[Rfam]
Overview
Small nucleolar RNA SNORD21: a 98-nucleotide RNA from Urocolius indicus. The source organism's lineage runs through Eukaryota, Vertebrata, Teleostomi, Coliiformes and Urocolius. The family's RNA type in Rfam is C/D-box small nucleolar RNA.

RNA sequence: GCUAUAUGAUGAUGUUCCCAAAGACUGAGCACAUUGUAGUUGGUCCAUGGUGUGUAUGUGAUGUGCUGCAGUGUUUUCAAGACGGGACUGAUGGCAGC
Number, nucleotide and partner (000 for none) at each position: 001g095002c094003u093004a092005u000006a000007u000008g000009a000010u000011g000012a000013u000014g000015u000016u000017c000018c000019c000020a000021a000022a000023g000024a000025c000026u000027g000028a000029g000030c000031a000032c000033a000034u000035u000036g000037u000038a000039g000040u000041u000042g000043g000044u000045c000046c000047a000048u000049g000050g000051u000052g000053u000054g000055u000056a000057u000058g000059u000060g000061a000062u000063g000064u000065g000066c000067u000068g000069c000070a000071g000072u000073g000074u000075u000076u000077u000078c000079a000080a000081g000082a000083c000084g000085g000086g000087a000088c000089u000090g000091a000092u004093g003094g002095c001096a000097g000098c000